[Rfam]
RNA sequence: GCCCUGAAGCGGAAACCGCCCAAACACCCGUUCAGACGGC
Numbered sequence: 001g002c003c004c005u006g007a008a009g010c011g012g013a014a015a016c017c018g019c020c021c022a023a024a025c026a027c028c029c030g031u032u033c034a035g036a037c038g039g040c
Stems, first nucleotide, its partner, number of pairs: 001040003004035005009027001011025001
RNA: neiserria ribosomal frameshift element